[Rfam]
RNA sequence: UUUCUCCACUAGGGGUGCCUUCGGGGCUGAGAUAAGGAUUCCCUUAAUCCCUUUGAACCUGAUCUGGCUGAUACCAGCGUAGGAAAGUGGAACGGCCUUUUU
Numbered sequence: 001u002u003u004c005u006c007c008a009c010u011a012g013g014g015g016u017g018c019c020u021u022c023g024g025g026g027c028u029g030a031g032a033u034a035a036g037g038a039u040u041c042c043c044u045u046a047a048u049c050c051c052u053u054u055g056a057a058c059c060u061g062a063u064c065u066g067g068c069u070g071a072u073a074c075c076a077g078c079g080u081a082g083g084a085a086a087g088u089g090g091a092a093c094g095g096c097c098u099u100u101u102u
Stems, first nucleotide, its partner, number of pairs: 006090005011052004016046001017027004034045004058083004064077004
Dot-bracket structure: .....(((((((((.(((((...))))......((((....)))))..)))).....((((..((((......))))..))))..)))))............
This 102-nucleotide RNA sequence from Evansella caseinilytica belongs to the Rfam family "TPP riboswitch aptamer (THI element)".
About the family: Vitamin B(1) in its active form thiamin pyrophosphate (TPP) is an essential coenzyme that is synthesised by coupling of pyrimidine and thiazole moieties in bacteria. The previously detected thiamin-regulatory element, thi box was extended, resulting in a new, highly conserved RNA secondary structure, the THI element, which is widely distributed in eubacteria and also occurs in some archaea. Analysis of operon structures identified a large number of new candidate thiamin-regulated genes, mostly transporters, in various prokaryotic organisms. The THI element is a riboswitch that directly binds to TPP to regulate gene expression through a variety of mechanisms in archaea, bacteria and eukaryotes. through a variety of mechanisms in archaea, bacteria and eukaryotes. Tandem TPP riboswitches have been reported where both TPP riboswitches respond independently to TPP. The structure of TPP riboswitch has been reported for Escherichia coli and Arabidopsis thaliana.
Pairs were carried over by alignment from the consensus structure, which is taken from published work.